[Rfam]
RNA sequence: AUAUAAUAGAUAGGUAACUCAAGGGUGGUCGGCUCACUCCCGCUUGAAAGGGGGUGGUGCUGAUGUCAGUAUUCGAAGCAUUAUCAUUCGCAGUAGCUUUUGCAACAUUGAUCGUAGUAAUUCUGUCAUUUAACCAUAAAAAAUAACCCAUCCUUGAGUUGACAGCUCAGAUGGGUUAAUCCUAUUUGCUAGCCAAUCCCCUUGAGGGGAAACGCUAUUAUAUUUGACCGCUUGAUCUUAGCCCAUCAAGUG
Numbered sequence: 001a002u003a004u005a006a007u008a009g010a011u012a013g014g015u016a017a018c019u020c021a022a023g024g025g026u027g028g029u030c031g032g033c034u035c036a037c038u039c040c041c042g043c044u045u046g047a048a049a050g051g052g053g054g055u056g057g058u059g060c061u062g063a064u065g066u067c068a069g070u071a072u073u074c075g076a077a078g079c080a081u082u083a084u085c086a087u088u089c090g091c092a093g094u095a096g097c098u099u100u101u102g103c104a105a106c107a108u109u110g111a112u113c114g115u116a117g118u119a120a121u122u123c124u125g126u127c128a129u130u131u132a133a134c135c136a137u138a139a140a141a142a143a144u145a146a147c148c149c150a151u152c153c154u155u156g157a158g159u160u161g162a163c164a165g166c167u168c169a170g171a172u173g174g175g176u177u178a179a180u181c182c183u184a185u186u187u188g189c190u191a192g193c194c195a196a197u198c199c200c201c202u203u204g205a206g207g208g209g210a211a212a213c214g215c216u217a218u219u220a221u222a223u224u225u226g227a228c229c230g231c232u233u234g235a236u237c238u239u240a241g242c243c244c245a246u247c248a249a250g251u252g
Stems, first nucleotide, its partner, number of pairs: 001223005007217003011196001013194003018158008027148003034057008065127001067125003071121001078091002101119003169183002197210004229252008